The record is a 106-nucleotide RNA from Inhella crocodyli, which matches "TPP riboswitch aptamer (THI element)" in Rfam. A search with the family's covariance model found it, with a score of 60 bits.

RNA sequence: CAUCCACGCUAGGGGUGCUGGCGCGUUCACGGACGCGGCCGGCUGAGAAACACCCUUGGAACCUGACUGAGGUAAUCCUCGCGCAGGGAAGCGUGGUCACCCCGGC
Numbered sequence: 001c002a003u004c005c006a007c008g009c010u011a012g013g014g015g016u017g018c019u020g021g022c023g024c025g026u027u028c029a030c031g032g033a034c035g036c037g038g039c040c041g042g043c044u045g046a047g048a049a050a051c052a053c054c055c056u057u058g059g060a061a062c063c064u065g066a067c068u069g070a071g072g073u074a075a076u077c078c079u080c081g082c083g084c085a086g087g088g089a090a091g092c093g094u095g096g097u098c099a100c101c102c103c104g105g106c
Stems, first nucleotide, its partner, number of pairs: 006094005011056004016050001017043005062087004068081004